[Rfam]
RNA sequence: GAAUACGGGCCGAUCUUCUCCUCCCCUUUGGGUCAGGCCCGCCGGACGCGAUAUGCACCUCCUCCCGCGUAUCGCAUCCAAACUCAAGGUGGCGGCAUCACCUCCUCCCGAUGUCGCCACCUUCA
Numbered sequence: 001g002a003a004u005a006c007g008g009g010c011c012g013a014u015c016u017u018c019u020c021c022u023c024c025c026c027u028u029u030g031g032g033u034c035a036g037g038c039c040c041g042c043c044g045g046a047c048g049c050g051a052u053a054u055g056c057a058c059c060u061c062c063u064c065c066c067g068c069g070u071a072u073c074g075c076a077u078c079c080a081a082a083c084u085c086a087a088g089g090u091g092g093c094g095g096c097a098u099c100a101c102c103u104c105c106u107c108c109c110g111a112u113g114u115c116g117c118c119a120c121c122u123u124c125a
Stems, first nucleotide, its partner, number of pairs: 007040003010036001012034005045078002048075007089120011
Rfam assigns this 125-nucleotide sequence from Cognatiyoonia koreensis to the family "Alphaproteobacterial ar14". A search with the family's covariance model found it, with a score of 64 bits. About the family: Smr14C2 was renamed NfeR1 (Nodule Formation Efficiency RNA) highly expressed in salt stress and during the symbiotic interaction on legume roots. Lineage of the source: Bacteria > Pseudomonadati > Pseudomonadota > Alphaproteobacteria > Cognatiyoonia.